Annotation: This 93-nucleotide sequence belongs to the Rfam family "GP20-a RNA". The family's consensus secondary structure is taken from published work.
RNA sequence: UCCGCCCAUCCCCGGCCGGGCUUAAAAUGCCGGGACGCCCCGGCGCGGAGUGGCCGCGCGCUUAUAAGGAAAAUCGCGGGCGGGAAAGGAAAU
Numbered sequence: 001u002c003c004g005c006c007c008a009u010c011c012c013c014g015g016c017c018g019g020g021c022u023u024a025a026a027a028u029g030c031c032g033g034g035a036c037g038c039c040c041c042g043g044c045g046c047g048g049a050g051u052g053g054c055c056g057c058g059c060g061c062u063u064a065u066a067a068g069g070a071a072a073a074u075c076g077c078g079g080g081c082g083g084g085a086a087a088g089g090a091a092a093u
Stems, first nucleotide, its partner, number of pairs: 005020003011034005036082005043059005